The record is a 438-nucleotide part of an RNA from Chondromyces crocatus, which matches "Bacterial large subunit ribosomal RNA" in Rfam.
Lineage of the source: Bacteria > Pseudomonadati > Myxococcota > Polyangiaceae > Chondromyces.
The base pairs follow the family's consensus structure, which is taken from published work.

[Rfam]
Nucleotides: 438
Stems, first nucleotide, its partner, number of pairs: 001377006011024005026129001027127006036120001037117001040114006051103001052101002057097003061093004068086002070083004133158010163174003178351004183347003189341003198338001200337006217311002221308005228301003238295005244268003249263003269273001274289001278287002352367006378433001380430007388422001397416005403410002
Number, partner (000 for none) and nucleotide at each position: 001377c002376u003375c004374c005373c006372c007000g008000a009000a010000a011024u012023a013022u014021a015020u016000u017000g018000a019000g020015g021014u022013a023012u024011a025000g026129c027127c028126u029125c030124g031123g032122a033000c034000g035000a036120a037117u038000u039000g040114c041113g042112a043111c044110g045109g046000a047000g048000g049000u050000a051103g052101a053100g054000c055000a056000c057097u058096g059095a060000a061093u062092g063091g064090g065000c066000u067000a068086g069085g070083g071082g072081u073080c074000c075000u076000a077000c078000c079000a080073g081072a082071u083070u084000a085069c086068c087000a088000a089000a090064c091063c092062c093061a094000a095059u096058c097057a098000a099000a100053c101052u102000c103051c104000g105000a106000a107000u108000g109045c110044c111043g112042u113041c114040g115000a116000c117037a118000a119000g120036u121000a122032u123031c124030c125029g126028g127027g128000a129026g130000a131000c132000a133158g134157g135156c136155u137154g138153c139152g140151g141150g142149a143000g144000a145000u146000a147000a148000g149142u150141u151140c152139c153138g154137u155136a156135g157134c158133c159000g160000a161000g162000a163174g164173g165172g166000a167000a168000a169000g170000a171000g172165c173164c174163c175000a176000g177000a178351u179350c180349g181348u182000c183347a184346g185345c186000u187000a188000a189341g190340g191339u192000c193000c194000c195000c196000a197000a198338g199000u200337c201336u202335g203334a204333g205332c206000u207000a208000a209000g210000u211000g212000u213000c214000a215000a216000a217311g218310g219000a220000u221308g222307u223306g224305g225304a226000a227000g228301c229300g230299c231000a232000c233000a234000g235000a236000c237000a238295a239294c240293c241292a242291g243000g244268a245267g246266g247000u248000u249263g250262g251261c252000u253000u254000a255000g256000a257000a258000g259000c260000a261251g262250c263249c264000a265000u266246c267245c268244u269273u270000u271000a272000a273269a274289g275000a276000a277000a278287g279286c280000g281000u282000a283000a284000u285000a286279g287278c288000u289274c290000a291242c292241u293240g294239g295238u296000c297000a298000a299230g300229c301228g302000a303000g304225u305224c306223c307222g308221c309000g310218c311217c312000g313000a314000a315000a316000a317000u318000a319000u320000a321000a322000c323000g324000g325000g326000g327000c328000u329000c330000a331000a332205g333204c334203u335202c336201a337200g338198c339191a340190c341189c342000g343000a344000a345185g346184c347183u348181a349180c350179g351178g352367g353366u354365u355364c356363u357362c358000g359000a360000a361000a362357g363356g364355g365354a366353g367352c368000g369000g370000u371000a372006g373005g374004g375003g376002a377001g378433u379000a380430u381429u382428c383427u384426c385425a386424a387000g388422g389000a390000g391000a392000c393000a394000c395000a396000c397416g398415u399414c400413g401412g402000a403410c404409g405000g406000a407000a408000a409404c410403g411000a412401c413400c414399g415398a416397u417000a418000u419000c420000g421000g422388c423000u424386u425385u426384g427383a428382g429381a430380a431000g432000a433378g434000c435000u436000u437000a438000u